The family of this 111-nucleotide RNA sequence from Sparassis crispa is "Small nucleolar RNA Z13/snr52". The source organism's lineage runs through Eukaryota, Fungi, Basidiomycota, Polyporales and Sparassis.
RNA sequence: CAAACUGUUGUGACGAAGCCAUUACGGAUGUAAAGCGAGCUUUAGAGCUCCACCGUCCGAGAGCGCAUGAACCCAUGUGGAUUUUCCGUUGCCUUCCUUCUGACUCCGUGA
Number, nucleotide and partner (000 for none) at each position: 001c000002a000003a000004a109005c108006u000007g000008u000009u000010g000011u000012g000013a000014c000015g000016a000017a000018g000019c000020c000021a000022u000023u000024a000025c088026g087027g086028a085029u000030g000031u000032a000033a000034a000035g000036c000037g000038a000039g000040c000041u000042u000043u000044a000045g000046a000047g000048c000049u000050c000051c000052a000053c000054c000055g000056u000057c000058c000059g000060a000061g000062a000063g000064c000065g000066c000067a000068u000069g000070a000071a000072c000073c000074c000075a000076u000077g000078u000079g000080g000081a000082u000083u000084u000085u028086c027087c026088g025089u000090u000091g000092c000093c000094u000095u000096c000097c000098u000099u000100c000101u000102g000103a000104c000105u000106c000107c000108g005109u004110g000111a000